[Rfam]
RNA: small nucleolar RNA snoR127
RNA sequence: CUGGAAUGAUGCAGCUUAGCCAAAUCAGACAUUGAUGUGCUCCAUAAGGCAUUAUGUUGAAGCGCAUCUCUCUGAUGAUAAACAAGGAGAUUGGUUCAUGAUUCCUGACCAGA
Dot-bracket structure: ((((........................................................................................................)))).